[Rfam]
Nucleotides: 086
Stems, first nucleotide, its partner, number of pairs: 004080006010072001012071006019062005029054004037046003
Number, partner (000 for none) and nucleotide at each position: 001000u002000c003000g004080c005079u006078a007077c008076u009075a010072c011000a012071a013070u014069g015068g016067u017066a018000u019062c020061u021060u022059c023058u024000g025000a026000a027000u028000u029054g030053g031052g032051u033000c034000a035000g036000g037046u038045u039044g040000g041000g042000a043000a044039c045038a046037a047000a048000g049000c050000a051032g052031c053030c054029c055000u056000a057000a058023g059022g060021g061020a062019g063000c064000u065000c066017u067016a068015u069014c070013a071012u072010g073000u074000g075009u076008a077007g078006u079005a080004g081000u082000u083000u084000u085000u086000u

This 86-nucleotide RNA from Absicoccus porci belongs to the Rfam family "Bacterial small signal recognition particle RNA". The signal recognition particle (SRP) is a universally conserved ribonucleoprotein involved in the co-translational targeting of proteins to membranes. The base pairs follow the family's consensus structure, which is taken from published work. The source organism's lineage runs through Bacteria, Bacillati, Erysipelotrichia, Erysipelotrichales and Absicoccus. On this family, see Rosenblad et al., Nucleic Acids Res 2003: "SRPDB: Signal Recognition Particle Database".